[Rfam]
RNA sequence: CAGCCAUCAAGACCGGCAGAGGGACAGGCCCUUUGAAGCCGGGGCAACCUGCAGGCGCGCAACGCGCCCAGCAGGUGCCAAAUCCUGCGGCAGGCGCGCGUCCUUACCGGCGCGCGCAGCCGGAAGAUGGGCA
Numbered sequence: 001c002a003g004c005c006a007u008c009a010a011g012a013c014c015g016g017c018a019g020a021g022g023g024a025c026a027g028g029c030c031c032u033u034u035g036a037a038g039c040c041g042g043g044g045c046a047a048c049c050u051g052c053a054g055g056c057g058c059g060c061a062a063c064g065c066g067c068c069c070a071g072c073a074g075g076u077g078c079c080a081a082a083u084c085c086u087g088c089g090g091c092a093g094g095c096g097c098g099c100g101u102c103c104u105u106a107c108c109g110g111c112g113c114g115c116g117c118a119g120c121c122g123g124a125a126g127a128u129g130g131g132c133a
Base pairs, nucleotide, nucleotide: 004130005129006128007127008126013042014041015040016039017038021031022030023029025087026086027085028084043079044078045077046076048075049074050073051072052071083125088122089121090120091119093117
Rfam assigns this 133-nucleotide sequence from Aquimonas voraii to the family "SAM riboswitch aptamer (S box leader)". The organism belongs to Aquimonas, within Bacteria.